This 149-nucleotide RNA sequence from Cucumis sativus belongs to the Rfam family "Small nucleolar RNA snoR145". By type it is an H/ACA-box small nucleolar RNA. On this family, see Chen and Wu, Nucleic Acids Res 2009: "Mining small RNA sequencing data: a new approach to identify small nucleolar RNAs in Arabidopsis".
[Rfam]
RNA sequence: GAGCGAAGGUCCCAGCAGAGGGGAGGAUAACUCUGAGAUUGAGACCCCUCUAACUUUUAAUUAAAUCCUUCGCAGAUUUAGCUGCCGAAUCGUAGGACGCCCAAAUCGUUAUUAGUUUUGGAUCGUCUUGAACCCUCGGCAACAUUCGU
Numbered sequence: 001g002a003g004c005g006a007a008g009g010u011c012c013c014a015g016c017a018g019a020g021g022g023g024a025g026g027a028u029a030a031c032u033c034u035g036a037g038a039u040u041g042a043g044a045c046c047c048c049u050c051u052a053a054c055u056u057u058u059a060a061u062u063a064a065a066u067c068c069u070u071c072g073c074a075g076a077u078u079u080a081g082c083u084g085c086c087g088a089a090u091c092g093u094a095g096g097a098c099g100c101c102c103a104a105a106u107c108g109u110u111a112u113u114a115g116u117u118u119u120g121g122a123u124c125g126u127c128u129u130g131a132a133c134c135c136u137c138g139g140c141a142a143c144a145u146u147c148g149u
Base pairs, nucleotide, nucleotide: 003073004072005071006070007069008068009067011020013018023050024049025048031043032042033041035039084140085139086138087137088136096127097126099124101121102120103119104118105117